[Rfam]
mir-2774 microRNA precursor family: a 67-nucleotide sequence from Bombyx mori.
Lineage of the source: Eukaryota > Mandibulata > Aparaglossata > Ditrysia > Bombyx.
The match comes from Rfam's covariance-model search (85 bits).
For this family Rfam cites "MicroRNAs of Bombyx mori identified by Solexa sequencing" (Liu et al., BMC Genomics, 2010).
The base pairs follow the family's consensus structure, which was predicted with RNAalifold.
RNA sequence: AUAACAUUUGGACCGUCGGUCUACCGAGCAAUAUCACCCGCCCGGUGGAAGAUUUUCCCUUCGUCGU
Numbered sequence: 001a002u003a004a005c006a007u008u009u010g011g012a013c014c015g016u017c018g019g020u021c022u023a024c025c026g027a028g029c030a031a032u033a034u035c036a037c038c039c040g041c042c043c044g045g046u047g048g049a050a051g052a053u054u055u056u057c058c059c060u061u062c063g064u065c066g067u
Stems, first nucleotide, its partner, number of pairs: 004064002010058003015053003020049007028041002